[Rfam]
RNA sequence: GUGGGGUUGAUUCGUCCCCCACGGCGUGAUCGGCGGGCAUAGAGGGGCAGUCAUCCGGGCUAAAUGGGCCGGAUGGCGAAGC
Numbered sequence: 001g002u003g004g005g006g007u008u009g010a011u012u013c014g015u016c017c018c019c020c021a022c023g024g025c026g027u028g029a030u031c032g033g034c035g036g037g038c039a040u041a042g043a044g045g046g047g048c049a050g051u052c053a054u055c056c057g058g059g060c061u062a063a064a065u066g067g068g069c070c071g072g073a074u075g076g077c078g079a080a081g082c
Stems, first nucleotide, its partner, number of pairs: 001022006055072004060067002

A member of the RNA family "RAGATH-28 RNA" from Gemmiger sp. An120, 82 nucleotides long. The family's RNA type in Rfam is small RNA. The base pairs follow the family's consensus structure, which is taken from published work.